[Rfam]
The family of this 48-nucleotide RNA sequence from a Myxococcales bacterium is "Guanidine-II riboswitch aptamer (mini-ykkC)". Rfam describes the family as follows. Simpler in structure and has fewer highly conserved nucleotide positions than the ykkC-yxkD leader. Despite this each of its two stem-loop structures directly bind free guanidine. Therefore, mini-ykkC RNA motif represents a distinct class of guanidine-sensing RNAs. Its crystal structure was also determined. The match comes from Rfam's covariance-model search (38 bits). The organism belongs to Myxococcales, within Bacteria. For this family Rfam cites "Identification of 22 candidate structured RNAs in bacteria using the CMfinder comparative genomics pipeline" (Weinberg et al., Nucleic Acids Res, 2007).

RNA sequence: GAGCCGGGACGACCCGGUUCGCGACGGGCAUCUGCCGGGACGACUCGG
Numbered sequence: 001g002a003g004c005c006g007g008g009a010c011g012a013c014c015c016g017g018u019u020c021g022c023g024a025c026g027g028g029c030a031u032c033u034g035c036c037g038g039g040a041c042g043a044c045u046c047g048g
Base pairs, nucleotide, nucleotide: 001020002019003018004017005016006015007014008013035048036047037046038045039044